[Rfam]
RNA sequence: GGUCAUGAGUGCCAGCGCACAGCCCCGGCUUGCUGGCCGGCAACCCUCGCGUCCGCGGCGGGGUGCCCCGGGUGAGGACCUGGUCCGUCACGGUCGGUGGCGGGCAAGCGCGGGCU
Dot-bracket structure: ((((....(.((((((....((......)).)))))))(((..(((.(.(......))..))).))).........))))..(((((((((.....)))))))))...........

The family of this 116-nucleotide RNA from Nonomuraea soli is "SAM (S-adenosyl methionine) riboswitch aptamer".
About the family: SAM-IV is a mRNA element that regulates gene expression via direct sensing of S-adenosylmethionine (SAM or AdoMet).
The base pairs follow the family's consensus structure, which is taken from published work.